Rfam assigns this 73-nucleotide sequence from Eggerthella sp. CAG:368 to the family "Glycine riboswitch aptamer".
RNA sequence: CUCUGGAAACGCACGUUGGUGCGCCGAAGAAGCAAUCUGCGUGAGCAGAGAAUCUUUCAGGCCAAUGACAGAG
Numbered sequence: 001c002u003c004u005g006g007a008a009a010c011g012c013a014c015g016u017u018g019g020u021g022c023g024c025c026g027a028a029g030a031a032g033c034a035a036u037c038u039g040c041g042u043g044a045g046c047a048g049a050g051a052a053u054c055u056u057u058c059a060g061g062c063c064a065a066u067g068a069c070a071g072a073g
Stems, first nucleotide, its partner, number of pairs: 001073005012021003023062003026058002030056003036049005